RNA sequence: AUACAUCCUCGUUAGGUGAGGCUCCUGUGCCGGAGAUAUGCUGCUGCCCAAAAAUGUCCAAAGACGCCAAUGGGUCAACAGGAACCAUCGAUAUAAGGUGGUUUUUAAUGCAGCUGGUAUAUAUCCUAUGCCGCACAGUGCUAAAGCUCUACGAAUGGAGGGGAUGC
Numbered sequence: 001a002u003a004c005a006u007c008c009u010c011g012u013u014a015g016g017u018g019a020g021g022c023u024c025c026u027g028u029g030c031c032g033g034a035g036a037u038a039u040g041c042u043g044c045u046g047c048c049c050a051a052a053a054a055u056g057u058c059c060a061a062a063g064a065c066g067c068c069a070a071u072g073g074g075u076c077a078a079c080a081g082g083a084a085c086c087a088u089c090g091a092u093a094u095a096a097g098g099u100g101g102u103u104u105u106u107a108a109u110g111c112a113g114c115u116g117g118u119a120u121a122u123a124u125c126c127u128a129u130g131c132c133g134c135a136c137a138g139u140g141c142u143a144a145a146g147c148u149c150u151a152c153g154a155a156u157g158g159a160g161g162g163g164a165u166g167c
Stems, first nucleotide, its partner, number of pairs: 006162005011152002013096001015148003020142003025138006032132002040114005046075005055066004081105004087099003116126002
RNA: M-box riboswitch aptamer (ykoK leader)